[Rfam]
RNA sequence: CUUCCCAAGGAGCGUUGCAGCGGGCCGAUCGACAGAUGCCCGUCAGGCUUGGGACCGCAUCCGCAACGACGCUCACCGGCC
Numbered sequence: 001c002u003u004c005c006c007a008a009g010g011a012g013c014g015u016u017g018c019a020g021c022g023g024g025c026c027g028a029u030c031g032a033c034a035g036a037u038g039c040c041c042g043u044c045a046g047g048c049u050u051g052g053g054a055c056c057g058c059a060u061c062c063g064c065a066a067c068g069a070c071g072c073u074c075a076c077c078g079g080c081c
Base pairs, nucleotide, nucleotide: 003054004053005052006051007050008049021042022041023040024039025038